[Rfam]
RNA sequence: GACCCAGGGGCAUUUUCCUCUCACGUUUCACUUUUCUCGUGAGUGAAGCGUUAGAGGAAAAUACCCCUGGGUC
Numbered sequence: 001g002a003c004c005c006a007g008g009g010g011c012a013u014u015u016u017c018c019u020c021u022c023a024c025g026u027u028u029c030a031c032u033u034u035u036c037u038c039g040u041g042a043g044u045g046a047a048g049c050g051u052u053a054g055a056g057g058a059a060a061a062u063a064c065c066c067c068u069g070g071g072u073c
Base pairs, nucleotide, nucleotide: 001073002072003071004070005069006068007067008066009065010064012062013061014060015059016058017057018056019055020054021053023051024050025049026048027047028046029045030044031043032042
Dot-bracket structure: ((((((((((.((((((((((.((((((((((.........)))))))))).)))))))))).))))))))))

Shown here is a 73-nucleotide RNA sequence from Exaiptasia diaphana, a member of the family "mir-2041 microRNA precursor family". Rfam links the family to the GO terms miRNA-mediated post-transcriptional gene silencing and RISC complex.